[Rfam]
The record is a 109-nucleotide sequence from Phaseolus vulgaris, which matches "MIR394 microRNA precursor family" in Rfam. Its family is annotated with miRNA-mediated post-transcriptional gene silencing and RISC complex in the Gene Ontology. The family has 19 seed sequences and 724 matches in Rfam 15.1. On this family, see Jones-Rhoades and Bartel, Mol Cell 2004: "Computational identification of plant microRNAs and their targets, including a stress-induced miRNA".

RNA sequence: GUUCCAUAGCCAUUUUGGCAUUCUGUCCACCUCCAUUAAAUGGAAUGUUUGGAAUCACUCAAAAUGGUGACAAUUGGAGGUGGCCAGUAGGCCAAACAGGCUCUGUGAA
Dot-bracket structure: ..........(...(((((....((.((((((((.........................................)))))))).))....)))))...)..........